[Rfam]
RNA sequence: UUAGAAAUCUUAGCGCCAUGACCCCUGGGCUUUGGCUUUCAGGGAUAACGAGGUUGAAGGUUAUCGAAUAUUCGGCGGAUGCCUUCACGCAGAGUCUGGAUGCGCACAUGAUAUCCAAAUAUGGGGGUAACUCCAAAACAAAGAAUCAUGACCGGACACC
Numbered sequence: 001u002u003a004g005a006a007a008u009c010u011u012a013g014c015g016c017c018a019u020g021a022c023c024c025c026u027g028g029g030c031u032u033u034g035g036c037u038u039u040c041a042g043g044g045a046u047a048a049c050g051a052g053g054u055u056g057a058a059g060g061u062u063a064u065c066g067a068a069u070a071u072u073c074g075g076c077g078g079a080u081g082c083c084u085u086c087a088c089g090c091a092g093a094g095u096c097u098g099g100a101u102g103c104g105c106a107c108a109u110g111a112u113a114u115c116c117a118a119a120u121a122u123g124g125g126g127g128u129a130a131c132u133c134c135a136a137a138a139c140a141a142a143g144a145a146u147c148a149u150g151a152c153c154g155g156a157c158a159c160c
Stems, first nucleotide, its partner, number of pairs: 021046001023044006055087005064075004088104004107150006122135005
RNA: glmS glucosamine-6-phosphate activated ribozyme aptamer
Organism: Coprococcus eutactus